This 85-nucleotide RNA sequence from Halomonas sp. 1513 belongs to the Rfam family "Group II catalytic intron D1-D4-1".
RNA sequence: CUACCGGCGUCGAGAGGCGGCGGGAUGGGUCACCAGACGUCAGCAGAGGUCAUAGUAAGUGCCGAUUCACCCCGGCACCAAGGGC
Number, nucleotide and partner (000 for none) at each position: 001c027002u000003a000004c023005c022006g021007g000008c019009g018010u017011c016012g000013a000014g000015a000016g011017g010018c009019g008020g000021c006022g005023g004024g000025a000026u000027g001028g000029g000030u000031c000032a000033c000034c000035a000036g000037a000038c000039g000040u047041c046042a000043g000044c000045a000046g041047a040048g000049g085050u084051c083052a000053u000054a000055g000056u000057a000058a000059g078060u077061g076062c075063c074064g073065a000066u000067u000068c000069a000070c000071c000072c000073c064074g063075g062076c061077a060078c059079c000080a000081a000082g000083g051084g050085c049
On this family, see Lehmann and Schmidt, Crit Rev Biochem Mol Biol 2003: "Group II introns: structure and catalytic versatility of large natural ribozymes". Pairs were carried over by alignment from the consensus structure.